[Rfam]
RNA sequence: UAAACCCGCCCCUCUGCACUCCACUUCAUGCCUGGGAGCGGGCAAAAGAAAGGAGAAAUCCGCCUUGUUCAGCGGUGCGGCAGUGUGGAGACCUGUCGCAAAGCCCGGAGGACGAACCCGCUUUCGGGCGAGACGGGGAUGCGGAGGCAGACCCGUUAUGAGCAAAAUCGAUGGCA
Numbered sequence: 001u002a003a004a005c006c007c008g009c010c011c012c013u014c015u016g017c018a019c020u021c022c023a024c025u026u027c028a029u030g031c032c033u034g035g036g037a038g039c040g041g042g043c044a045a046a047a048g049a050a051a052g053g054a055g056a057a058a059u060c061c062g063c064c065u066u067g068u069u070c071a072g073c074g075g076u077g078c079g080g081c082a083g084u085g086u087g088g089a090g091a092c093c094u095g096u097c098g099c100a101a102a103g104c105c106c107g108g109a110g111g112a113c114g115a116a117c118c119c120g121c122u123u124u125c126g127g128g129c130g131a132g133a134c135g136g137g138g139a140u141g142c143g144g145a146g147g148c149a150g151a152c153c154c155g156u157u158a159u160g161a162g163c164a165a166a167a168u169c170g171a172u173g174g175c176a
Stems, first nucleotide, its partner, number of pairs: 006041004011036003016031003060075004065165007076100008085092002103129009132157006140149003
A member of the RNA family "malK-I RNA", 176 nucleotides long. It is annotated as a cis-regulatory element. The sequence is in the family's curated seed alignment. Pairs were carried over by alignment from the consensus structure, which is taken from published work.